[Rfam]
RNA sequence: GAAGACCCUGUUGAGCUUGACUCUAGUCCGACUCUGUGAAGGGACAUGAGAGGUGUAGCAUAAGUGGGAGCUUCGCGGCGCAGUUGAAAUACCACUACUCCCAUAGUUCCUUUACUUACGAGGUUACGCGGGAAGCGGGCCUUGCGGCCCUCCUUUCUAGCUCCGAAGCGCGGACGGCCUCCGGUCGUCGGCGCGACCUGUUGUCCUCGGACGCAGUCUGGCGGGGAGUUUGACUGGGGCGGUACAUCUGUCAAAAGGUAACGCAGGUGUCCUAAGGUGAGCUCAGUGAGGACGGAAACCUCACGUAGAGCAAAAGGGCAAAAGCUCACUUGAUUUUGAUUUUCAGUACGAAUACAGACCGUGAAAGCGUGGCCUAUCGAUCCUUUUGAUUUUAGGAGUUUUAAGCAAGAGGUGUCAGAAAAGUUACCACAGGGAUAACUGGCUUGUGGCAGCCAAGCGUUCAUAGCGACGUUGCUUUUUGAUCCUUCGAUGUCGGCUCUUCCUAUCAUUGUGAAGCAGAAUUCACCAAGCGUUGGAUUGUUCACCCACUAAUAGGGAACGUGAGCUGGGUUUAGACCGUCGUGAGACAGGUUAGUU
Numbered sequence: 001g002a003a004g005a006c007c008c009u010g011u012u013g014a015g016c017u018u019g020a021c022u023c024u025a026g027u028c029c030g031a032c033u034c035u036g037u038g039a040a041g042g043g044a045c046a047u048g049a050g051a052g053g054u055g056u057a058g059c060a061u062a063a064g065u066g067g068g069a070g071c072u073u074c075g076c077g078g079c080g081c082a083g084u085u086g087a088a089a090u091a092c093c094a095c096u097a098c099u100c101c102c103a104u105a106g107u108u109c110c111u112u113u114a115c116u117u118a119c120g121a122g123g124u125u126a127c128g129c130g131g132g133a134a135g136c137g138g139g140c141c142u143u144g145c146g147g148c149c150c151u152c153c154u155u156u157c158u159a160g161c162u163c164c165g166a167a168g169c170g171c172g173g174a175c176g177g178c179c180u181c182c183g184g185u186c187g188u189c190g191g192c193g194c195g196a197c198c199u200g201u202u203g204u205c206c207u208c209g210g211a212c213g214c215a216g217u218c219u220g221g222c223g224g225g226g227a228g229u230u231u232g233a234c235u236g237g238g239g240c241g242g243u244a245c246a247u248c249u250g251u252c253a254a255a256a257g258g259u260a261a262c263g264c265a266g267g268u269g270u271c272c273u274a275a276g277g278u279g280a281g282c283u284c285a286g287u288g289a290g291g292a293c294g295g296a297a298a299c300c301u302c303a304c305g306u307a308g309a310g311c312a313a314a315a316g317g318g319c320a321a322a323a324g325c326u327c328a329c330u331u332g333a334u335u336u337u338g339a340u341u342u343u344c345a346g347u348a349c350g351a352a353u354a355c356a357g358a359c360c361g362u363g364a365a366a367g368c369g370u371g372g373c374c375u376a377u378c379g380a381u382c383c384u385u386u387u388g389a390u391u392u393u394a395g396g397a398g399u400u401u402u403a404a405g406c407a408a409g410a411g412g413u414g415u416c417a418g419a420a421a422a423g424u425u426a427c428c429a430c431a432g433g434g435a436u437a438a439c440u441g442g443c444u445u446g447u448g449g450c451a452g453c454c455a456a457g458c459g460u461u462c463a464u465a466g467c468g469a470c471g472u473u474g475c476u477u478u479u480u481g482a483u484c485c486u487u488c489g490a491u492g493u494c495g496g497c498u499c500u501u502c503c504u505a506u507c508a509u510u511g512u513g514a515a516g517c518a519g520a521a522u523u524c525a526c527c528a529a530g531c532g533u534u535g536g537a538u539u540g541u542u543c544a545c546c547c548a549c550u551a552a553u554a555g556g557g558a559a560c561g562u563g564a565g566c567u568g569g570g571u572u573u574a575g576a577c578c579g580u581c582g583u584g585a586g587a588c589a590g591g592u593u594a595g596u597u
Base pairs, nucleotide, nucleotide: 007433008432009431010430012429013428014425015424016423017422018421020229021228022227023226027221028220030218031217032216033215036115037114038113039112040111041110042109043108044107045106046104047103048102050100051099052098063096064095065094066093067092070079071078119209120208121207122206123205129200130199131198132197137150138149139148140147141146168194169193170192171191232245233243234242235241246268247267248266249265250264251263271372272371277329278328279327280326281325282324283309284308286304287303288302289301290300291299310319311318334358335357336356339353340352341351342350360369361368362367383411384410385409386408387407388406391405392404393403394402442483444481446480448476449475450474451473452472453471457467458466494569495567496566497565498564499561500558501557502556503555504554507532511526512525513524514523515522534548535547536546538544575593576592577591578590579588580587581586

The record is a 597-nucleotide part of an RNA from Owenia fusiformis, which matches "Eukaryotic large subunit ribosomal RNA" in Rfam. Taxonomically the source falls in Owenia (Eukaryota, Protostomia, Lophotrochozoa, Oweniida).